The family of this 68-nucleotide sequence from Burkholderiales bacterium PBB4 is "ilvH RNA". Taxonomically the source falls in Burkholderiales (Bacteria, Pseudomonadati, Pseudomonadota, Betaproteobacteria). The match comes from Rfam's covariance-model search (81 bits). The base pairs follow the family's consensus structure, which is taken from published work.

RNA sequence: GACGAAUCUAUUGCUCGCCGAUUCCUGUUGUUACCGCAACGGGAGGAGGGCGACGAAAAGAGGAAUCA
Numbered sequence: 001g002a003c004g005a006a007u008c009u010a011u012u013g014c015u016c017g018c019c020g021a022u023u024c025c026u027g028u029u030g031u032u033a034c035c036g037c038a039a040c041g042g043g044a045g046g047a048g049g050g051c052g053a054c055g056a057a058a059a060g061a062g063g064a065a066u067c068a
Base pairs, nucleotide, nucleotide: 011056012055013054015053016052017051018050019049023044024043025042026041027040028039029038030037031036